[Rfam]
RNA sequence: AUAGAGUUCGUUAAAUUUCUUCAUAUAUACUCCAUAAUAUGGUUGGAGAGUCUCUACCGGGUUACCGUAAAUAACCUGACUAUGAAGGCAGAAUAUUCUAUA
Numbered sequence: 001a002u003a004g005a006g007u008u009c010g011u012u013a014a015a016u017u018u019c020u021u022c023a024u025a026u027a028u029a030c031u032c033c034a035u036a037a038u039a040u041g042g043u044u045g046g047a048g049a050g051u052c053u054c055u056a057c058c059g060g061g062u063u064a065c066c067g068u069a070a071a072u073a074a075c076c077u078g079a080c081u082a083u084g085a086a087g088g089c090a091g092a093a094u095a096u097u098c099u100a101u102a
Stems, first nucleotide, its partner, number of pairs: 018088008030048005058078007
RNA: Purine riboswitch aptamer